[Rfam]
RNA sequence: ACAAGAAGUCGUCCGGUGGAUGGCUCGGCUCAGGGGCCUAAGAAGGGCGCGGCAAGCAGCGAAAUUCCCAGGGGAGGCGCAAGCAGCCUUCGAUCCUGGGGUCCCCUAAUGGGAAUUCCUAUCCAGAGUUAACAGCUCUGGAUGUCCCGUAAGGGACGGGAACCCCCCGAACGGAAGCAUCUUAGUAGGGGGAGGAGGAGAAAUCAAUCGAGAUUCCCUGAGUAGGGGCGACCGAAAGGGGAACAGCCCAAACCAAAUCCGCUAGUGACGAGCUGGCGGAGAUGUGGUGUUUUACCCUGGAUCAGGGGCAACCCAACCUCCGGUGCUUAGAUAGCCGAACUCACCUGGAAAGGUGGACCAUAGAGGGUGACAGUCCCGUAGGCGAAAUCUAAGCGGGAGGUGAUUCAGGGUAGAGUACUAUCCCCUAGUUUGGGGGUAGGAAGAUGGGAGACACGUGCUUCCAAGGCUAAAUACUUCCUGAGACCGAUAGCGAACUCAGUACUGUGAAGGAAAGCUGAAAAGUACCCCGGGAGGGGAGUGAAAAGUGCCUGAAACCGGACGAUUACACAG
Numbered sequence: 001a002c003a004a005g006a007a008g009u010c011g012u013c014c015g016g017u018g019g020a021u022g023g024c025u026c027g028g029c030u031c032a033g034g035g036g037c038c039u040a041a042g043a044a045g046g047g048c049g050c051g052g053c054a055a056g057c058a059g060c061g062a063a064a065u066u067c068c069c070a071g072g073g074g075a076g077g078c079g080c081a082a083g084c085a086g087c088c089u090u091c092g093a094u095c096c097u098g099g100g101g102u103c104c105c106c107u108a109a110u111g112g113g114a115a116u117u118c119c120u121a122u123c124c125a126g127a128g129u130u131a132a133c134a135g136c137u138c139u140g141g142a143u144g145u146c147c148c149g150u151a152a153g154g155g156a157c158g159g160g161a162a163c164c165c166c167c168c169g170a171a172c173g174g175a176a177g178c179a180u181c182u183u184a185g186u187a188g189g190g191g192g193a194g195g196a197g198g199a200g201a202a203a204u205c206a207a208u209c210g211a212g213a214u215u216c217c218c219u220g221a222g223u224a225g226g227g228g229c230g231a232c233c234g235a236a237a238g239g240g241g242a243a244c245a246g247c248c249c250a251a252a253c254c255a256a257a258u259c260c261g262c263u264a265g266u267g268a269c270g271a272g273c274u275g276g277c278g279g280a281g282a283u284g285u286g287g288u289g290u291u292u293u294a295c296c297c298u299g300g301a302u303c304a305g306g307g308g309c310a311a312c313c314c315a316a317c318c319u320c321c322g323g324u325g326c327u328u329a330g331a332u333a334g335c336c337g338a339a340c341u342c343a344c345c346u347g348g349a350a351a352g353g354u355g356g357a358c359c360a361u362a363g364a365g366g367g368u369g370a371c372a373g374u375c376c377c378g379u380a381g382g383c384g385a386a387a388u389c390u391a392a393g394c395g396g397g398a399g400g401u402g403a404u405u406c407a408g409g410g411u412a413g414a415g416u417a418c419u420a421u422c423c424c425c426u427a428g429u430u431u432g433g434g435g436g437u438a439g440g441a442a443g444a445u446g447g448g449a450g451a452c453a454c455g456u457g458c459u460u461c462c463a464a465g466g467c468u469a470a471a472u473a474c475u476u477c478c479u480g481a482g483a484c485c486g487a488u489a490g491c492g493a494a495c496u497c498a499g500u501a502c503u504g505u506g507a508a509g510g511a512a513a514g515c516u517g518a519a520a521a522g523u524a525c526c527c528c529g530g531g532a533g534g535g536g537a538g539u540g541a542a543a544a545g546u547g548c549c550u551g552a553a554a555c556c557g558g559a560c561g562a563u564u565a566c567a568c569a570g
Stems, first nucleotide, its partner, number of pairs: 007564010022549001023515002027485002029482006035475002044107004048061003067100006076088003111120003145156004163194001164192005174181002204211002215242005225233002245468004253287003263275004298407004318399004334383003340356001342355004359363001365377003418439007446462005502509002
RNA: Archaeal large subunit ribosomal RNA, nucleotides 10 to 579